[Rfam]
Rfam assigns this 50-nucleotide RNA sequence from Escherichia coli to the family "algC RNA". The sequence is in the family's curated seed alignment. The base pairs follow the family's consensus structure, which is taken from published work. Taxonomically the source falls in Escherichia coli (Bacteria, Pseudomonadota, Gammaproteobacteria, Enterobacteriaceae).
RNA sequence: ACAAAAUUGGCCGUUUCGGUCAGGGCCAACUAUUGCUUGAAAAAGGGUAA
Numbered sequence: 001a002c003a004a005a006a007u008u009g010g011c012c013g014u015u016u017c018g019g020u021c022a023g024g025g026c027c028a029a030c031u032a033u034u035g036c037u038u039g040a041a042a043a044a045g046g047g048u049a050a
Stems, first nucleotide, its partner, number of pairs: 009021005